This 110-nucleotide RNA sequence from Natronobacillus azotifigens belongs to the Rfam family "SAM riboswitch aptamer (S box leader)".
Lineage of the source: Bacteria > Bacillati > Bacilli > Caryophanales > Natronobacillus.
The match comes from Rfam's covariance-model search (77 bits).

[Rfam]
RNA sequence: AACUCAUCCAGAGAGAGGGAGGGACUGACCCGGUGAACUCUCGGCAACCGCUUAUUUAAGAUGUAAGCCAGGUGCCAAUUUCAGAAGCAUCGAUAUGCUAUAGAUGGGAA
Numbered sequence: 001a002a003c004u005c006a007u008c009c010a011g012a013g014a015g016a017g018g019g020a021g022g023g024a025c026u027g028a029c030c031c032g033g034u035g036a037a038c039u040c041u042c043g044g045c046a047a048c049c050g051c052u053u054a055u056u057u058a059a060g061a062u063g064u065a066a067g068c069c070a071g072g073u074g075c076c077a078a079u080u081u082c083a084g085a086a087g088c089a090u091c092g093a094u095a096u097g098c099u100a101u102a103g104a105u106g107g108g109a110a
Stems, first nucleotide, its partner, number of pairs: 003108006013042005021031003025084004043076004048072002050068006080102001086099005